The record is a 104-nucleotide RNA sequence from Paenibacillus sp. yr247, which matches "Guanidine-I riboswitch aptamer" in Rfam. A search with the family's covariance model found it, with a score of 83 bits. Pairs were carried over by alignment from the consensus structure.

[Rfam]
RNA sequence: CAUAUCGUUUUCUAGGGUUCCGUGGCGUCCAUCGCCAGGCUGGUCCGAGAGAAAACACACAGGCGGAUACGCUGUGGUCACGGAGGGGAAAAAGCCCGGGAGUC
Numbered sequence: 001c002a003u004a005u006c007g008u009u010u011u012c013u014a015g016g017g018u019u020c021c022g023u024g025g026c027g028u029c030c031a032u033c034g035c036c037a038g039g040c041u042g043g044u045c046c047g048a049g050a051g052a053a054a055a056c057a058c059a060c061a062g063g064c065g066g067a068u069a070c071g072c073u074g075u076g077g078u079c080a081c082g083g084a085g086g087g088g089a090a091a092a093a094g095c096c097c098g099g100g101a102g103u104c
Stems, first nucleotide, its partner, number of pairs: 007056006015046002020043002022040001023037005058076005064071001079099001081102001085097003